[Rfam]
Notes: This 118-nucleotide sequence from Desulfuromonas soudanensis belongs to the Rfam family "Molybdenum/Tungsten riboswitch aptamer (Moco RNA motif)". Lineage of the source: Bacteria > Pseudomonadati > Desulfuromonadia > Desulfuromonadaceae > Desulfuromonas. Rfam links the family to the GO terms tungstate binding, regulation of gene expression and molybdenum ion binding.
RNA sequence: UUCAACACUGAUCUCCGAGCUCUUCCGCCUACGAGGUUUUCCUUAGGGCGGGCGGCCAACGGGUUGCGCUGGAAACGGCGCAGCCUCCCUUUCGGAAAGGAGAUGCCCCAUGUCAACC
Numbered sequence: 001u002u003c004a005a006c007a008c009u010g011a012u013c014u015c016c017g018a019g020c021u022c023u024u025c026c027g028c029c030u031a032c033g034a035g036g037u038u039u040u041c042c043u044u045a046g047g048g049c050g051g052g053c054g055g056c057c058a059a060c061g062g063g064u065u066g067c068g069c070u071g072g073a074a075a076c077g078g079c080g081c082a083g084c085c086u087c088c089c090u091u092u093c094g095g096a097a098a099g100g101a102g103a104u105g106c107c108c109c110a111u112g113u114c115a116a117c118c
Base pairs, nucleotide, nucleotide: 003112004111011104012103013102014101015100016099019056020055022054024052025051026050027049028048029047033044034043035042036041061086062085063084064083065082066081067080068079069078070077071076087095088094